The family of this 73-nucleotide RNA sequence from Magnetococcus marinus is "tRNA".
The organism belongs to Magnetococcus marinus, within Bacteria.
It is annotated as a transfer RNA.
Pairs were carried over by alignment from the consensus structure, which is taken from published work.
Transfer RNA (tRNA) molecules are approximately 80 nucleotides in length.
RNA sequence: GGGCGAAUAGCUCAGCUGGGAGAGCAUCGCCCUUACAAGGCGAGGGUCACAGGUUCGAACCCUGUUUCGCCCA
Numbered sequence: 001g002g003g004c005g006a007a008u009a010g011c012u013c014a015g016c017u018g019g020g021a022g023a024g025c026a027u028c029g030c031c032c033u034u035a036c037a038a039g040g041c042g043a044g045g046g047u048c049a050c051a052g053g054u055u056c057g058a059a060c061c062c063u064g065u066u067u068c069g070c071c072c073a
Stems, first nucleotide, its partner, number of pairs: 001072007010025004027043005049065005